The record is a 125-nucleotide RNA from Bucco capensis, which matches "Small nucleolar RNA ACA64" in Rfam.
The source organism's lineage runs through Eukaryota, Metazoa, Craniata, Piciformes and Bucco.
Rfam classes the family as an H/ACA-box small nucleolar RNA.
The literature on the family includes a 2006 paper in RNA by Schattner et al., "A computational screen for mammalian pseudouridylation guide H/ACA RNAs".
Gene Ontology terms of the family: nucleolus and RNA processing.
It scores 47 bits against the family's covariance model.
[Rfam]
RNA sequence: ACAGUCUGAAAAUCCCUUGUGGUCUCCUGUGGCCCCUGGUGCAAUAACUGUGCCAAUAGCAGAGGGAGCAUUAAACUCAUUGCCCACAGUAAAUUGUGGGGAGCAAUACACAUGUUCCUAUAAUC
Numbered sequence: 001a002c003a004g005u006c007u008g009a010a011a012a013u014c015c016c017u018u019g020u021g022g023u024c025u026c027c028u029g030u031g032g033c034c035c036c037u038g039g040u041g042c043a044a045u046a047a048c049u050g051u052g053c054c055a056a057u058a059g060c061a062g063a064g065g066g067a068g069c070a071u072u073a074a075a076c077u078c079a080u081u082g083c084c085c086a087c088a089g090u091a092a093a094u095u096g097u098g099g100g101g102a103g104c105a106a107u108a109c110a111c112a113u114g115u116u117c118c119u120a121u122a123a124u125c
Stems, first nucleotide, its partner, number of pairs: 006050001008048001010045001014041001016039001021034004065118001067116005077106001080103002085098003